[Rfam]
RNA sequence: GGUCGCAUAGCUCAGUUGGUAGAGCACUACCUUGACAUGGUAGGGGUCACAGGUUCAAGUCCUGUUGUGGCCA
Numbered sequence: 001g002g003u004c005g006c007a008u009a010g011c012u013c014a015g016u017u018g019g020u021a022g023a024g025c026a027c028u029a030c031c032u033u034g035a036c037a038u039g040g041u042a043g044g045g046g047u048c049a050c051a052g053g054u055u056c057a058a059g060u061c062c063u064g065u066u067g068u069g070g071c072c073a
Stems, first nucleotide, its partner, number of pairs: 001072007010025004027043005049065005
RNA: tRNA
Organism: Arcobacter sp. FWKO B